[Rfam]
RNA sequence: GGCCUAACCCUCACAGUUUGACUUUGAGAUAUGGCAAGAAUACCCAUCCCUGAUACUGAACCCCUCGUUCAGCAAUCUCAGGGAUGGGACAUAUCCGAAAGGGUAUGUGGACCGCAAGGUUC
Numbered sequence: 001g002g003c004c005u006a007a008c009c010c011u012c013a014c015a016g017u018u019u020g021a022c023u024u025u026g027a028g029a030u031a032u033g034g035c036a037a038g039a040a041u042a043c044c045c046a047u048c049c050c051u052g053a054u055a056c057u058g059a060a061c062c063c064c065u066c067g068u069u070c071a072g073c074a075a076u077c078u079c080a081g082g083g084a085u086g087g088g089a090c091a092u093a094u095c096c097g098a099a100a101g102g103g104u105a106u107g108u109g110g111a112c113c114g115c116a117a118g119g120u121u122c
Stems, first nucleotide, its partner, number of pairs: 002035003010028004015023003043088011054074001056072005090107007109122005
LOOT RNA: a 122-nucleotide RNA.